Notes: Rfam assigns this 46-nucleotide sequence from Nocardioides sp. GY 10113 to the family "L31-Actinobacteria ribosomal protein leader". The family's consensus secondary structure is taken from published work. The organism belongs to Nocardioides, within Bacteria.
RNA sequence: UUGGCUCCGGUUCACGUCCCGCAUCCCGCGCGGACGACCCGGGACC
Numbered sequence: 001u002u003g004g005c006u007c008c009g010g011u012u013c014a015c016g017u018c019c020c021g022c023a024u025c026c027c028g029c030g031c032g033g034a035c036g037a038c039c040c041g042g043g044a045c046c
Stems, first nucleotide, its partner, number of pairs: 003046002007042004015036005020030003